[Rfam]
RNA sequence: CUCGGUCCUCGGUAGUGGCUUUCGGGUCGAGAACCCCGCGGGCCUCGAUCGAAGACCGGG
Numbered sequence: 001c002u003c004g005g006u007c008c009u010c011g012g013u014a015g016u017g018g019c020u021u022u023c024g025g026g027u028c029g030a031g032a033a034c035c036c037c038g039c040g041g042g043c044c045u046c047g048a049u050c051g052a053a054g055a056c057c058g059g060g
Stems, first nucleotide, its partner, number of pairs: 001060007009052005017044005023038004